A member of the RNA family "mir-58 microRNA precursor family" from Caenorhabditis elegans, 77 nucleotides long. Rfam's curators put it in the seed alignment.

[Rfam]
RNA sequence: AUCCAUUGCCCUACUCUUCGCAUCUCAUCACUUCGUCCAAUACCAUAGGGAUGAGAUCGUUCAGUACGGCAAUGGAC
Dot-bracket structure: .(((((((((.((((...((.((((((((.(((.............)))))))))))))...)))).))))))))).
Numbered sequence: 001a002u003c004c005a006u007u008g009c010c011c012u013a014c015u016c017u018u019c020g021c022a023u024c025u026c027a028u029c030a031c032u033u034c035g036u037c038c039a040a041u042a043c044c045a046u047a048g049g050g051a052u053g054a055g056a057u058c059g060u061u062c063a064g065u066a067c068g069g070c071a072a073u074g075g076a077c
Stems, first nucleotide, its partner, number of pairs: 002076009012066004019059002022057008031049003
The literature on the family includes a 2001 paper in Science by Lau et al., "An abundant class of tiny RNAs with probable regulatory roles in Caenorhabditis elegans".